[Rfam]
RNA sequence: UGGGAAAAGAAGAAGCACCCGCUUCUCACCUGAUUAACGCAAAUGAGCAGUUGGCAGGUUUUACUUGAACUUUUUGUUUCUUACUUAUGUUCUGUAAAGUGUGGGUGUAUUCAUCCACACUUUUUUAUUUGU
Numbered sequence: 001u002g003g004g005a006a007a008a009g010a011a012g013a014a015g016c017a018c019c020c021g022c023u024u025c026u027c028a029c030c031u032g033a034u035u036a037a038c039g040c041a042a043a044u045g046a047g048c049a050g051u052u053g054g055c056a057g058g059u060u061u062u063a064c065u066u067g068a069a070c071u072u073u074u075u076g077u078u079u080c081u082u083a084c085u086u087a088u089g090u091u092c093u094g095u096a097a098a099g100u101g102u103g104g105g106u107g108u109a110u111u112c113a114u115c116c117a118c119a120c121u122u123u124u125u126u127a128u129u130u131g132u
Base pairs, nucleotide, nucleotide: 011026012025013024014023015022016021028059029058030057036052037051038050039048040047100119101118102117103116104115105114106113107112
The record is a 132-nucleotide sequence from Neobacillus vireti, which matches "Ribosomal protein L20 leader" in Rfam. Rfam links the family to the GO term regulation of gene expression. It scores 86 bits against the family's covariance model. Lineage of the source: Bacteria > Bacillati > Bacilli > Caryophanales > Neobacillus vireti. About the family: This family is a putative r-protein leader autoregulatory structure found in B. subtilis and other low-GC Gram-positive bacteria. It is located in the 5' untranslated regions of mRNAs encoding initiation factor 3 followed by ribosomal proteins L35 and L20 (infC-rpmI-rplT).